[Rfam]
RNA: skipping-rope RNA
RNA sequence: AGUAUUUGAGGAUAGAAAAGGUAGCUAUCAGUCAUUUCUGAAAUGUACAAAUGUGGGAGUACCACCCCACCAAAUACU
Number, nucleotide and partner (000 for none) at each position: 001a078002g077003u076004a075005u074006u073007u072008g071009a000010g000011g029012a028013u027014a026015g025016a000017a000018a000019a000020g063021g062022u061023a060024g000025c015026u014027a013028u012029c011030a000031g048032u000033c045034a044035u043036u042037u000038c000039u000040g000041a000042a036043a035044u034045g033046u000047a000048c031049a000050a000051a000052u000053g070054u069055g068056g067057g066058a000059g000060u023061a022062c021063c020064a000065c000066c057067c056068c055069a054070c053071c008072a007073a006074a005075u004076a003077c002078u001